[Rfam]
RNA sequence: GUCAAUCACCCCACCCUGAAGGGUGGAGCUUGCGGAGAAAUCCAAAAAGCUAGGUUGACCAGGGUAGUGGUAGCCAAUCCACGGCGUUAAUAACAGGUCCUUCAGACACACCAGUGAGUGCUUCCUCAGCUCGCUGCUCUGUAAGGUCUUGAUCAUGCUGGACAAGGGUAAAGGUCCGAAGGUCUUGAUCGCGGCGCGCAAGCGCUGGAGCCGGUUGUUGACAGUCCCGAGGGGAGACCGUGC
Numbered sequence: 001g002u003c004a005a006u007c008a009c010c011c012c013a014c015c016c017u018g019a020a021g022g023g024u025g026g027a028g029c030u031u032g033c034g035g036a037g038a039a040a041u042c043c044a045a046a047a048a049g050c051u052a053g054g055u056u057g058a059c060c061a062g063g064g065u066a067g068u069g070g071u072a073g074c075c076a077a078u079c080c081a082c083g084g085c086g087u088u089a090a091u092a093a094c095a096g097g098u099c100c101u102u103c104a105g106a107c108a109c110a111c112c113a114g115u116g117a118g119u120g121c122u123u124c125c126u127c128a129g130c131u132c133g134c135u136g137c138u139c140u141g142u143a144a145g146g147u148c149u150u151g152a153u154c155a156u157g158c159u160g161g162a163c164a165a166g167g168g169u170a171a172a173g174g175u176c177c178g179a180a181g182g183u184c185u186u187g188a189u190c191g192c193g194g195c196g197c198g199c200a201a202g203c204g205c206u207g208g209a210g211c212c213g214g215u216u217g218u219u220g221a222c223a224g225u226c227c228c229g230a231g232g233g234g235a236g237a238c239c240g241u242g243c
Stems, first nucleotide, its partner, number of pairs: 001059007010028001012025002015022002029049003062228003067082004086222009096212001108142002112136008120239001122237002124234004145190004151184004159178005